[Rfam]
RNA sequence: CAUGUUGAUUGUACUUCAUCAGGUGCUCUGGUGGUACGAAUACCCGGCACCUGUUGGAGCGCAAUUCAUAUG
Number, nucleotide and partner (000 for none) at each position: 001c072002a071003u070004g069005u000006u000007g000008a000009u000010u063011g062012u061013a000014c059015u058016u057017c056018a055019u000020c053021a052022g000023g050024u049025g048026c047027u046028c000029u000030g044031g043032u000033g000034g000035u000036a000037c000038g000039a000040a000041u000042a000043c031044c030045c000046g027047g026048c025049a024050c023051c000052u021053g020054u000055u018056g017057g016058a015059g014060c000061g012062c011063a010064a000065u000066u000067c000068a000069u004070a003071u002072g001
Shown here is a 72-nucleotide RNA from Diachasma alloeum, a member of the family "mir-305 microRNA precursor family".
Gene Ontology terms of the family: miRNA-mediated post-transcriptional gene silencing and RISC complex.
A reference for the family is Skalsky et al. (2010), "Identification of microRNAs expressed in two mosquito vectors, Aedes albopictus and Culex quinquefasciatus", BMC Genomics.
Pairs were carried over by alignment from the consensus structure, which was predicted with RNAalifold.
The match comes from Rfam's covariance-model search (83 bits).